[Rfam]
Shown here is a 118-nucleotide RNA sequence from Trogon melanurus, a member of the family "Small nucleolar RNA SNORA26". Pairs were carried over by alignment from the consensus structure, which was predicted with RNAalifold. The snoRNA HBI-6 belong to the H/ACA family of snoRNAs, guiding the pseudouridylation of position U4522 if the 28S rRNA. HBI-6 is the human orthologue of mouse MBI-6 snoRNA. Rfam links the family to the GO terms RNA processing and nucleolus. Clan: SNORA27 clan. The literature on the family includes a 2001 paper in EMBO J by Huttenhofer et al., "RNomics: an experimental approach that identifies 201 candidates for novel, small, non-messenger RNAs in mouse".

RNA sequence: UUGCCCUCUUAAGUCUGGCAGUGUCUUAAGUGGCCAAUACAGAGGGGUACAAAAAUUCUCUCUCAAACCCGGAGGUGAGGUUAAAACUCUUCUUUGGAUCAUGAUGAGAGGAACACAU
Numbered sequence: 001u002u003g004c005c006c007u008c009u010u011a012a013g014u015c016u017g018g019c020a021g022u023g024u025c026u027u028a029a030g031u032g033g034c035c036a037a038u039a040c041a042g043a044g045g046g047g048u049a050c051a052a053a054a055a056u057u058c059u060c061u062c063u064c065a066a067a068c069c070c071g072g073a074g075g076u077g078a079g080g081u082u083a084a085a086a087c088u089c090u091u092c093u094u095u096g097g098a099u100c101a102u103g104a105u106g107a108g109a110g111g112a113a114c115a116c117a118u
Base pairs, nucleotide, nucleotide: 002049003048004047005046006045007044009042010041016036017035019030056112058110059109060108061107062106069097070096071095072094073093074092075091077089078088079087081086